[Rfam]
RNA sequence: UUGGCGGUGAACUCCCACUCGCCCUGGGGUCCGGCGAGGACCUCGGCGCCGAAGUACUCGCCGUUGGCCAGGGUGCCCAGGACGGUCUGGUCGCCGUACUCGCCCUGGCCGAUCUUGUUGACCUUGCCGUGGGCGAUCAGCCACACCUGGUCGCACGGCCGGCCCCGCUCGACGAUGACGUCGCCGGGCUCGUACUCGUGCUGGCGGAACCGCUCGGCGAGCGCGGCGAGGGCCUCGACGUCCUCGAAGCCGCGCAGGUAGGGCAGUUCGCACAGCUCCUGCGGGACGACGUCGAUGUCGGCCCCGAUGUUGGUGAAGGUGAGCCGCCCGUCGCCCACGGCGUAGGUCAACCGGCGGUUGACCCGGUACGCGCCGCCGUGCGCCUGGACCCACGGGAGGACUUUGAGCAGCCACCGGGAGGUGAUGCCCUGCAUCUGCGGAACGGACUUGGUCGUGGUCGCCAGGUUCCGGGCCGCCGCUGUGCCGAGGCUCAGCCGUGGCUGUUCGA
Dot-bracket structure: .....(((..(..(.(..(((((.(.........(.((.(.(..((.(((((.((.((((((((((((......(.(.((.(((((......))))).)).))....)))).....(((..((..((.((.(.((....(..(......(..((.((((...(..((.....))..).....)))).)).)....))....)).)...)).))..))..))))))))))).)).(((..(((.((.....((.(.((....(......)......))).))...)).)))..)))..))))).))).).)).)..).)))))......((((......)))).........((((((....(.......)..)))))).).)..)..)))((.((.(..((.((..(.......).))..))..).)).)).....((((..((((((((((.......)))))).))))..))))((..((.(...(......)...)))....)).
Shown here is a 508-nucleotide RNA from Saccharothrix variisporea, a member of the family "Saccharopolyspora sRNA 350". The family's RNA type in Rfam is antisense RNA. The organism belongs to Saccharothrix, within Bacteria. The match comes from Rfam's covariance-model search (223 bits). Pairs were carried over by alignment from the consensus structure, which was predicted with RNAfold.